[Rfam]
The record is a 153-nucleotide RNA from Sesamum indicum, which matches "Small nucleolar RNA snoR145" in Rfam. A reference for the family is Chen and Wu (2009), "Mining small RNA sequencing data: a new approach to identify small nucleolar RNAs in Arabidopsis", Nucleic Acids Res.
RNA sequence: AGGCGAAGGUCCCAGCGGAGGGGAAGGACUCUAUAUCGAGCCCUCUCUAACACUUGAAAGUAAAUGCCUUCGAAGAACAAUGAUUGGCCGAAUAAAAGAACGCUUCAUAUUGUUCAAGUUUUGGUGCGUUUCGAACCCCUCGGCUAUAUGUCA
Numbered sequence: 001a002g003g004c005g006a007a008g009g010u011c012c013c014a015g016c017g018g019a020g021g022g023g024a025a026g027g028a029c030u031c032u033a034u035a036u037c038g039a040g041c042c043c044u045c046u047c048u049a050a051c052a053c054u055u056g057a058a059a060g061u062a063a064a065u066g067c068c069u070u071c072g073a074a075g076a077a078c079a080a081u082g083a084u085u086g087g088c089c090g091a092a093u094a095a096a097a098g099a100a101c102g103c104u105u106c107a108u109a110u111u112g113u114u115c116a117a118g119u120u121u122u123g124g125u126g127c128g129u130u131u132c133g134a135a136c137c138c139c140u141c142g143g144c145u146a147u148a149u150g151u152c153a
Stems, first nucleotide, its partner, number of pairs: 004072006011020001013018001026046002029040003087144005099130002102127002105124003109120001

The family's RNA type in Rfam is H/ACA-box small nucleolar RNA. The source organism's lineage runs through Eukaryota, Magnoliopsida, Pentapetalae, Pedaliaceae and Sesamum. The family's consensus secondary structure was predicted with mfold.